[Rfam]
RNA sequence: GGGUUAGCUCAGUGGUUACUUCCGAUAUCGAAAAUCAUCCCUCUCGUGGAUGUCGGGCAACCGAUGUCCCGGGAUCGAACCACGGGCACUGUCCACCGUUUU
Numbered sequence: 001g002g003g004u005u006a007g008c009u010c011a012g013u014g015g016u017u018a019c020u021u022c023c024g025a026u027a028u029c030g031a032a033a034a035u036c037a038u039c040c041c042u043c044u045c046g047u048g049g050a051u052g053u054c055g056g057g058c059a060a061c062c063g064a065u066g067u068c069c070c071g072g073g074a075u076c077g078a079a080c081c082a083c084g085g086g087c088a089c090u091g092u093c094c095a096c097c098g099u100u101u102u
Stems, first nucleotide, its partner, number of pairs: 001094002007087004012083004020079003024075001
Rfam assigns this 102-nucleotide RNA from Anabarilius grahami to the family "Vault RNA".
The organism belongs to Anabarilius, within Eukaryota.
Rfam classes the family as a non-coding RNA gene.